[Rfam]
The record is an 88-nucleotide sequence from Gymnorhina tibicen, which matches "Small nucleolar RNA SNORD103/SNORD85" in Rfam. The organism belongs to Gymnorhina, within Eukaryota. For this family Rfam cites "RNomics: an experimental approach that identifies 201 candidates for novel, small, non-messenger RNAs in mouse" (Huttenhofer et al., EMBO J, 2001). By type it is a C/D-box small nucleolar RNA. Pairs were carried over by alignment from the consensus structure.
RNA sequence: GCUGGCAGUGAUGCCACGCUUGCCCUCACUGAGAACUCCGGUCACUGACGAGCCUCUCGCUCCCCGUGCUCGGAGCAGCUGAGCCAGA
Numbered sequence: 001g002c003u004g005g006c007a008g009u010g011a012u013g014c015c016a017c018g019c020u021u022g023c024c025c026u027c028a029c030u031g032a033g034a035a036c037u038c039c040g041g042u043c044a045c046u047g048a049c050g051a052g053c054c055u056c057u058c059g060c061u062c063c064c065c066g067u068g069c070u071c072g073g074a075g076c077a078g079c080u081g082a083g084c085c086a087g088a
Stems, first nucleotide, its partner, number of pairs: 002087005